[Rfam]
RNA sequence: ACAACAAUAACAACAACGCGAUAAACCAAUAACAAUAAGACGAAACGACUCUGACAUAACAAGAACAAACGCGACAGAGACGUAGCUAACAGAUUUUUUUGGAGAAGAUGGGCUUUUCAGGGGGUUGCCCCGCAGCCAGGUAGAGAACAACAAAACUACGCCAAGUAGCUACCCACUGGUUGGAUCGAUGAUGAAAGCAGAUCAGCGCUCAAAAAAAUACGUUUGCUCUUGAUCCCUUUUCGGGAUCGCACAACAAGCGACAAGGGUCACGGCUGACAAAUACAACAACAGGCCGCCCCUCAAUAAUAAAAAAAGAGCAUGCAGAAAAACCUUGAGGGGAGCCUAGGCUCCCCUCAGUGCUUUCCGCGAUUUGGAUUGCAGGCCCCG
Numbered sequence: 001a002c003a004a005c006a007a008u009a010a011c012a013a014c015a016a017c018g019c020g021a022u023a024a025a026c027c028a029a030u031a032a033c034a035a036u037a038a039g040a041c042g043a044a045a046c047g048a049c050u051c052u053g054a055c056a057u058a059a060c061a062a063g064a065a066c067a068a069a070c071g072c073g074a075c076a077g078a079g080a081c082g083u084a085g086c087u088a089a090c091a092g093a094u095u096u097u098u099u100u101g102g103a104g105a106a107g108a109u110g111g112g113c114u115u116u117u118c119a120g121g122g123g124g125u126u127g128c129c130c131c132g133c134a135g136c137c138a139g140g141u142a143g144a145g146a147a148c149a150a151c152a153a154a155a156c157u158a159c160g161c162c163a164a165g166u167a168g169c170u171a172c173c174c175a176c177u178g179g180u181u182g183g184a185u186c187g188a189u190g191a192u193g194a195a196a197g198c199a200g201a202u203c204a205g206c207g208c209u210c211a212a213a214a215a216a217a218u219a220c221g222u223u224u225g226c227u228c229u230u231g232a233u234c235c236c237u238u239u240u241c242g243g244g245a246u247c248g249c250a251c252a253a254c255a256a257g258c259g260a261c262a263a264g265g266g267u268c269a270c271g272g273c274u275g276a277c278a279a280a281u282a283c284a285a286c287a288a289c290a291g292g293c294c295g296c297c298c299c300u301c302a303a304u305a306a307u308a309a310a311a312a313a314a315g316a317g318c319a320u321g322c323a324g325a326a327a328a329a330c331c332u333u334g335a336g337g338g339g340a341g342c343c344u345a346g347g348c349u350c351c352c353c354u355c356a357g358u359g360c361u362u363u364c365c366g367c368g369a370u371u372u373g374g375a376u377u378g379c380a381g382g383c384c385c386c387g
Stems, first nucleotide, its partner, number of pairs: 046082002049079004097214005112206002133182007156168004232246005266367001268366001270295004317360004334355009
Dot-bracket structure: .............................................((.((((.......................)))).))..............(((((..........((...................(((((((................((((.....)))).......)))))))......................))...))))).................(((((.....)))))...................(.(.((((..................)))).....................((((.............(((((((((....))))))))).)))).....))....................
Shown here is a 387-nucleotide RNA from Pseudomonas rhizosphaerae, a member of the family "Pseudomonas sRNA CrcZ". The family's RNA type in Rfam is small RNA. Gene Ontology term of the family: carbon catabolite repression of transcription. Taxonomically the source falls in Pseudomonas (Bacteria, Pseudomonadota, Pseudomonadales, Pseudomonadaceae). The literature on the family includes a 2006 paper in Nucleic Acids Res by Livny et al., "Identification of 17 Pseudomonas aeruginosa sRNAs and prediction of sRNA-encoding genes in 10 diverse pathogens using the bioinformatic tool sRNAPredict2". Pairs were carried over by alignment from the consensus structure, which was predicted with WAR.